[Rfam]
RNA sequence: ACGUGCUCCGGGGUCGGUGAAAAUCCGAACCGGCGGUCAUAGUCCGCGACCCUCACGGCGACGUCGAACGUUUCGUCACCACGAGGUUGAACCGGUGGAACUCCGGUACCGACGGUGAAAGUCCGGAUGAGAGGAAGCACGG
Numbered sequence: 001a002c003g004u005g006c007u008c009c010g011g012g013g014u015c016g017g018u019g020a021a022a023a024u025c026c027g028a029a030c031c032g033g034c035g036g037u038c039a040u041a042g043u044c045c046g047c048g049a050c051c052c053u054c055a056c057g058g059c060g061a062c063g064u065c066g067a068a069c070g071u072u073u074c075g076u077c078a079c080c081a082c083g084a085g086g087u088u089g090a091a092c093c094g095g096u097g098g099a100a101c102u103c104c105g106g107u108a109c110c111g112a113c114g115g116u117g118a119a120a121g122u123c124c125g126g127a128u129g130a131g132a133g134g135a136a137g138c139a140c141g142g
Stems, first nucleotide, its partner, number of pairs: 003140004007134002015027003029122002031111002033047004042109002051086004091107005113125003
Dot-bracket structure: ..((((((......(((.......))).[[((((((.....[[))))...((((............................))))....(((((.......)))))]])).(((.....]]))).......))..))))..
The record is a 142-nucleotide RNA from Actinomycetales bacterium JB111, which matches "FMN riboswitch aptamer (RFN element)" in Rfam.